Background
A member of the RNA family "nhaA-I RNA" from Methylobacterium sp. GXF4, 57 nucleotides long. Pairs were carried over by alignment from the consensus structure, which is taken from published work. NCBI's taxonomy places the organism under Bacteria, Pseudomonadati, Pseudomonadota, Alphaproteobacteria, Methylobacterium.
RNA sequence: GGGUGUACGAUCCGGAGGUCGGAUCGGCAGGUUUCUGCGUUGGUCGGGCCGCCAGCG
Numbered sequence: 001g002g003g004u005g006u007a008c009g010a011u012c013c014g015g016a017g018g019u020c021g022g023a024u025c026g027g028c029a030g031g032u033u034u035c036u037g038c039g040u041u042g043g044u045c046g047g048g049c050c051g052c053c054a055g056c057g
Base pairs, nucleotide, nucleotide: 005028006027008026009025010024011023012022038057039056040055041054042053043052044051

Rfam describes the family as follows. Acidobacteria, Alphaproteobacteria, Betaproteobacteria and Gammaproteobacteria, Verrucomicrobia, cand. division NC10. Rfam's curators put it in the seed alignment.